[Rfam]
RNA sequence: AACUCUCCGCAUUCAUUGUAUGCCUAUAUGUGUUCUUAAUUUACCAUAAGGCACGCGGUGAAUGCCAAGAGGA
Numbered sequence: 001a002a003c004u005c006u007c008c009g010c011a012u013u014c015a016u017u018g019u020a021u022g023c024c025u026a027u028a029u030g031u032g033u034u035c036u037u038a039a040u041u042u043a044c045c046a047u048a049a050g051g052c053a054c055g056c057g058g059u060g061a062a063u064g065c066c067a068a069g070a071g072g073a
Base pairs, nucleotide, nucleotide: 003071004070005069006068009065010064011063012062013061014060015059016058018056019055023051024050025049027048028047029046030045
mir-124 microRNA precursor family: a 73-nucleotide sequence from Araneus ventricosus. Gene Ontology terms of the family: RISC complex and miRNA-mediated post-transcriptional gene silencing. On this family, see Lai et al., Genome Biol 2003: "Computational identification of Drosophila microRNA genes". The base pairs follow the family's consensus structure, which was predicted with PFOLD. It scores 58 bits against the family's covariance model. Taxonomically the source falls in Araneus (Eukaryota, Bilateria, Araneae, Araneomorphae).